A member of the RNA family "mir-218 microRNA precursor family" from Tetraodon nigroviridis, 76 nucleotides long. Lineage of the source: Eukaryota > Teleostei > Acanthomorphata > Tetraodontoidei > Tetraodon. The family's consensus secondary structure was predicted with RNAalifold.

RNA sequence: CAGGACCCCAUUGUGCUUGAUCUAACCAUGCAGUGCGUCCUGUGUCCAUGGUUGUGCCAAGCACCUUGGAGGCUUG
Numbered sequence: 001c002a003g004g005a006c007c008c009c010a011u012u013g014u015g016c017u018u019g020a021u022c023u024a025a026c027c028a029u030g031c032a033g034u035g036c037g038u039c040c041u042g043u044g045u046c047c048a049u050g051g052u053u054g055u056g057c058c059a060a061g062c063a064c065c066u067u068g069g070a071g072g073c074u075u076g
Stems, first nucleotide, its partner, number of pairs: 001076004006071001008069002013064007024053007